Rfam assigns this 114-nucleotide sequence from Actinacidiphila alni to the family "Streptomyces-metK RNA". The family's consensus secondary structure is taken from published work.
RNA sequence: UCGAGAUGCCGUGUCACGUCCGGUGGCGCGGACUAUAAGCUAGCGGUGGAGUGCCGGGCGCAGCCCUGCGCAUUCCGCCAAGAUUCAGCCAGCAGCCGCUGCAACCCCAGGGAG
Numbered sequence: 001u002c003g004a005g006a007u008g009c010c011g012u013g014u015c016a017c018g019u020c021c022g023g024u025g026g027c028g029c030g031g032a033c034u035a036u037a038a039g040c041u042a043g044c045g046g047u048g049g050a051g052u053g054c055c056g057g058g059c060g061c062a063g064c065c066c067u068g069c070g071c072a073u074u075c076c077g078c079c080a081a082g083a084u085u086c087a088g089c090c091a092g093c094a095g096c097c098g099c100u101g102c103a104a105c106c107c108c109a110g111g112g113a114g
Base pairs, nucleotide, nucleotide: 048076049075050074051073052072053071057067058066090101091100092099093098
The organism belongs to Actinacidiphila, within Bacteria.